[Rfam]
Source information
Rfam assigns this 101-nucleotide sequence from Faecalicoccus pleomorphus to the family "TPP riboswitch aptamer (THI element)". The family's consensus secondary structure is taken from published work. Rfam's curators write: Vitamin B(1) in its active form thiamin pyrophosphate (TPP) is an essential coenzyme that is synthesised by coupling of pyrimidine and thiazole moieties in bacteria. Its family is annotated with thiamine pyrophosphate binding in the Gene Ontology.
RNA sequence: AAGUCAAGACAGGGGCGCCUAUUUAGGCUGAGAUGUAUUUAUACGGUCCCUUAUGACCUGAUCUAGGUAAUUCUAGCGUAGGGAGUCUUCAAAGCUUUUUU
Numbered sequence: 001a002a003g004u005c006a007a008g009a010c011a012g013g014g015g016c017g018c019c020u021a022u023u024u025a026g027g028c029u030g031a032g033a034u035g036u037a038u039u040u041a042u043a044c045g046g047u048c049c050c051u052u053a054u055g056a057c058c059u060g061a062u063c064u065a066g067g068u069a070a071u072u073c074u075a076g077c078g079u080a081g082g083g084a085g086u087c088u089u090c091a092a093a094g095c096u097u098u099u100u101u
Base pairs, nucleotide, nucleotide: 006089007088008087009086010085011051012050013049014048016045017028018027019026020025035044036043037042057082058081059080060079063076064075065074066073